Rfam assigns this 72-nucleotide RNA sequence from Endozoicomonas elysicola to the family "tRNA". Its family is annotated with triplet codon-amino acid adaptor activity in the Gene Ontology.
[Rfam]
RNA sequence: UGGGGUGUCGCCAAGCGGUAAGGCAUCAGGUUUUGAUCCUGACAUGCGGGGGUUCGAAUCCCUCCACCCCAG
Numbered sequence: 001u002g003g004g005g006u007g008u009c010g011c012c013a014a015g016c017g018g019u020a021a022g023g024c025a026u027c028a029g030g031u032u033u034u035g036a037u038c039c040u041g042a043c044a045u046g047c048g049g050g051g052g053u054u055c056g057a058a059u060c061c062c063u064c065c066a067c068c069c070c071a072g
Stems, first nucleotide, its partner, number of pairs: 001071007010024003026042005048064005
Source information: For this family Rfam cites "tRNAscan-SE: a program for improved detection of transfer RNA genes in genomic sequence" (Lowe and Eddy, Nucleic Acids Res, 1997). The match comes from Rfam's covariance-model search (63 bits). Rfam classes the family as a transfer RNA.